Description
The record is a 64-nucleotide RNA from Natronincola peptidivorans, which matches "DUF3800-VIII RNA" in Rfam. The base pairs follow the family's consensus structure, which is taken from published work. Bacteroidetes, Cyanobacteria, Firmicutes, Planctomycetes (1 example), Proteobacteria, Tenericutes (1 example).
RNA sequence: UAAGCUCUGUCAAUCCGAAGUCUCAAGUUCCACUUGGGAUACUUAGUAGGAAAGAUGGGGCUUU
Numbered sequence: 001u002a003a004g005c006u007c008u009g010u011c012a013a014u015c016c017g018a019a020g021u022c023u024c025a026a027g028u029u030c031c032a033c034u035u036g037g038g039a040u041a042c043u044u045a046g047u048a049g050g051a052a053a054g055a056u057g058g059g060g061c062u063u064u
Base pairs, nucleotide, nucleotide: 002063003062004061005060006059007058008057009056010055011054014051015050016049020040021039022038023037024036025035026034027033028032